[Rfam]
Source information:
Rfam assigns this 108-nucleotide sequence from Rhododendron williamsianum to the family "Small nucleolar RNA snoR100". The source organism's lineage runs through Eukaryota, Euphyllophyta, asterids, Ericales and Rhododendron. Its family is annotated with RNA processing and nucleolus in the Gene Ontology.
RNA sequence: GAAUGAAGGAAGCAUGGUAAUGCGCACAGAAAUUGAUUUGGGUCUCUAGGCUUGCCCUCUUUGAUGCCUUUCGGCUUUGAUUUGAGGGUAUGGUUCCGCGGCAAAACG
Numbered sequence: 001g002a003a004u005g006a007a008g009g010a011a012g013c014a015u016g017g018u019a020a021u022g023c024g025c026a027c028a029g030a031a032a033u034u035g036a037u038u039u040g041g042g043u044c045u046c047u048a049g050g051c052u053u054g055c056c057c058u059c060u061u062u063g064a065u066g067c068c069u070u071u072c073g074g075c076u077u078u079g080a081u082u083u084g085a086g087g088g089u090a091u092g093g094u095u096c097c098g099c100g101g102c103a104a105a106a107c108g
Stems, first nucleotide, its partner, number of pairs: 012025002015022001040091001042089003050081001052079001054075003